Shown here is a 110-nucleotide RNA from Hibiscus trionum, a member of the family "Small nucleolar RNA snoR97". A reference for the family is Marker et al. (2002), "Experimental RNomics: identification of 140 candidates for small non-messenger RNAs in the plant Arabidopsis thaliana", Curr Biol.

[Rfam]
RNA sequence: CUAAUUUAUUGUGGUUUAGGGUCUGAAAAACUCGUAUAGUUUUGUGUUGUCAUCAGCUUCUUCUCUUUGUAUUUCCAACGAGAUUGGAGUUAAAUAACAGCACUAAAUUG
Numbered sequence: 001c002u003a004a005u006u007u008a009u010u011g012u013g014g015u016u017u018a019g020g021g022u023c024u025g026a027a028a029a030a031c032u033c034g035u036a037u038a039g040u041u042u043u044g045u046g047u048u049g050u051c052a053u054c055a056g057c058u059u060c061u062u063c064u065c066u067u068u069g070u071a072u073u074u075c076c077a078a079c080g081a082g083a084u085u086g087g088a089g090u091u092a093a094a095u096a097a098c099a100g101c102a103c104u105a106a107a108u109u110g
Base pairs, nucleotide, nucleotide: 044103045102046101047100048099049098055091056090057089058088059087060086062083063082064081065080